RNA: Small nucleolar RNA Z163/Z177 family
RNA sequence: UGGCCAGUGACGAAACAUGAGUUGUACAGAUACUCUUGCAAGUUAAAUGAAGUAAAUUGAAAUACACACAUUGCGUCUCUGAGGUCA
Numbered sequence: 001u002g003g004c005c006a007g008u009g010a011c012g013a014a015a016c017a018u019g020a021g022u023u024g025u026a027c028a029g030a031u032a033c034u035c036u037u038g039c040a041a042g043u044u045a046a047a048u049g050a051a052g053u054a055a056a057u058u059g060a061a062a063u064a065c066a067c068a069c070a071u072u073g074c075g076u077c078u079c080u081g082a083g084g085u086c087a
Stems, first nucleotide, its partner, number of pairs: 001087005